[Rfam]
RNA: HgcC family RNA
RNA sequence: GAGGGUCGCUCUGACCCGGCCCAAUGACACAAACCGAAGGCGAUGACUCCGUCGUGAGACGGGGUAAGAGCCGGUUCCCCUAUGGGGAACCCUCGCCCCUUCAGGGCGGGGAGGAGGUCAGCAAUACAACUCC
Numbered sequence: 001g002a003g004g005g006u007c008g009c010u011c012u013g014a015c016c017c018g019g020c021c022c023a024a025u026g027a028c029a030c031a032a033a034c035c036g037a038a039g040g041c042g043a044u045g046a047c048u049c050c051g052u053c054g055u056g057a058g059a060c061g062g063g064g065u066a067a068g069a070g071c072c073g074g075u076u077c078c079c080c081u082a083u084g085g086g087g088a089a090c091c092c093u094c095g096c097c098c099c100u101u102c103a104g105g106g107c108g109g110g111g112a113g114g115a116g117g118u119c120a121g122c123a124a125u126a127c128a129a130c131u132c133c
Stems, first nucleotide, its partner, number of pairs: 003022006039072003049062005074090005091111008